[Rfam]
RNA sequence: GUAUAUGUGUGCGGGGAUAGUAUUCAGCACCAAGGACGGGUAUGUGUGUGUGUGUGUGGAUAGUAUUCAGCACCAAGGACAGAUAUGUGUGUGU
Numbered sequence: 001g002u003a004u005a006u007g008u009g010u011g012c013g014g015g016g017a018u019a020g021u022a023u024u025c026a027g028c029a030c031c032a033a034g035g036a037c038g039g040g041u042a043u044g045u046g047u048g049u050g051u052g053u054g055u056g057u058g059g060a061u062a063g064u065a066u067u068c069a070g071c072a073c074c075a076a077g078g079a080c081a082g083a084u085a086u087g088u089g090u091g092u093g094u
Stems, first nucleotide, its partner, number of pairs: 004085003008081003018075001020073002023070002026067002029064002032061001034055001036053003040049003
Rfam assigns this 94-nucleotide sequence from Branchiostoma belcheri to the family "mir-2060 microRNA precursor family". Its family is annotated with RISC complex and miRNA-mediated post-transcriptional gene silencing in the Gene Ontology. The family has 7 seed sequences and 3,696 matches in Rfam 15.1.